[Rfam]
RNA: MIR390 microRNA precursor family
Organism: Salvia splendens
RNA sequence: AUGGAGAGUCCGUAAAGCUCAGGAGGGAUAGCGCCACCCCAAUUUCGAUUCCCGGUCUUCAUUGGCGCUAUCCAUCCUGAGUUUCAUGGUUUCUUUUC
Numbered sequence: 001a002u003g004g005a006g007a008g009u010c011c012g013u014a015a016a017g018c019u020c021a022g023g024a025g026g027g028a029u030a031g032c033g034c035c036a037c038c039c040c041a042a043u044u045u046c047g048a049u050u051c052c053c054g055g056u057c058u059u060c061a062u063u064g065g066c067g068c069u070a071u072c073c074a075u076c077c078u079g080a081g082u083u084u085c086a087u088g089g090u091u092u093c094u095u096u097u098c
Stems, first nucleotide, its partner, number of pairs: 010089001016083009026073010